[Rfam]
RNA sequence: CGAGUUGGCCGGGCGGCCGCGGGACCGAGAGGUUUCGAGGAAAGUCCGGACUUCACAGAGCAGGGUGAUUGCUAACGGCAAUCCGAGGUGACUCGCGGGACAGUGCCACAGAAAACAGACCGCCGUCGCAAGACGGUAAGGGUGAAACGGUGCGGUAAGAGCGCACCAGCAUUCCGGGUGACCGGAGUGGCUAGGUAAACCCCACCCGAAGCAAGGCCAAGAAGGCCGCAACCUGGUUGCGGUUGCGCAGGUGCCCGAGGGCUGCUCGCCCGAGCCUGCGGGUAGGCCGCUCGAGGUACCCGGCGACGGUGUACCCAGAUGGAUGGUCGCCGCCUCGCCACCAGUGAUGGUGGCGGGGAACAGAAUCCGGCUUAGAGGCCAGCUCGUCCG
Numbered sequence: 001c002g003a004g005u006u007g008g009c010c011g012g013g014c015g016g017c018c019g020c021g022g023g024a025c026c027g028a029g030a031g032g033u034u035u036c037g038a039g040g041a042a043a044g045u046c047c048g049g050a051c052u053u054c055a056c057a058g059a060g061c062a063g064g065g066u067g068a069u070u071g072c073u074a075a076c077g078g079c080a081a082u083c084c085g086a087g088g089u090g091a092c093u094c095g096c097g098g099g100a101c102a103g104u105g106c107c108a109c110a111g112a113a114a115a116c117a118g119a120c121c122g123c124c125g126u127c128g129c130a131a132g133a134c135g136g137u138a139a140g141g142g143u144g145a146a147a148c149g150g151u152g153c154g155g156u157a158a159g160a161g162c163g164c165a166c167c168a169g170c171a172u173u174c175c176g177g178g179u180g181a182c183c184g185g186a187g188u189g190g191c192u193a194g195g196u197a198a199a200c201c202c203c204a205c206c207c208g209a210a211g212c213a214a215g216g217c218c219a220a221g222a223a224g225g226c227c228g229c230a231a232c233c234u235g236g237u238u239g240c241g242g243u244u245g246c247g248c249a250g251g252u253g254c255c256c257g258a259g260g261g262c263u264g265c266u267c268g269c270c271c272g273a274g275c276c277u278g279c280g281g282g283u284a285g286g287c288c289g290c291u292c293g294a295g296g297u298a299c300c301c302g303g304c305g306a307c308g309g310u311g312u313a314c315c316c317a318g319a320u321g322g323a324u325g326g327u328c329g330c331c332g333c334c335u336c337g338c339c340a341c342c343a344g345u346g347a348u349g350g351u352g353g354c355g356g357g358g359a360a361c362a363g364a365a366u367c368c369g370g371c372u373u374a375g376a377g378g379c380c381a382g383c384u385c386g387u388c389c390g
Base pairs, nucleotide, nucleotide: 001386002385003384004383005382006381007380008379009378010377012331013330014329015328016327017326018325020037021036022035023034024033025032026031042373043372044371046370047369048368049367050366051211052210053209054208058267059266060265061264063207064206065205066204067203068082069081070080071079072078083097084095085094086093087092098202099201103200104199105196106195107194120141121140122137123136124135125134126133127132149167150166151165152164153163154162169191170189171188172187173186174185175184176183177182215288216287217286218285225279226278228276259271260270261269262268295315296314297313298312299311300309301308302307
RNA: Bacterial RNase P class A